[Rfam]
About this RNA
A member of the RNA family "TPP riboswitch aptamer (THI element)" from Alkalibacterium sp. 20, 104 nucleotides long. About the family: Vitamin B(1) in its active form thiamin pyrophosphate (TPP) is an essential coenzyme that is synthesised by coupling of pyrimidine and thiazole moieties in bacteria. A search with the family's covariance model found it, with a score of 59 bits.

RNA sequence: ACGAAUGAUCCUGGGAGUCUUUUCAAGAAGGCUGAGAGUGAUGUAUAUCAGACCAGUAACCUGAUCAGCGUAAUGGCUGCGGAGGGAGAUCUAUAUAUGAUGGC
Numbered sequence: 001a002c003g004a005a006u007g008a009u010c011c012u013g014g015g016a017g018u019c020u021u022u023u024c025a026a027g028a029a030g031g032c033u034g035a036g037a038g039u040g041a042u043g044u045a046u047a048u049c050a051g052a053c054c055a056g057u058a059a060c061c062u063g064a065u066c067a068g069c070g071u072a073a074u075g076g077c078u079g080c081g082g083a084g085g086g087a088g089a090u091c092u093a094u095a096u097a098u099g100a101u102g103g104c
Stems, first nucleotide, its partner, number of pairs: 007091004011056004017032005039050004060085003066079004
The organism belongs to Alkalibacterium, within Bacteria. The family's consensus secondary structure is taken from published work.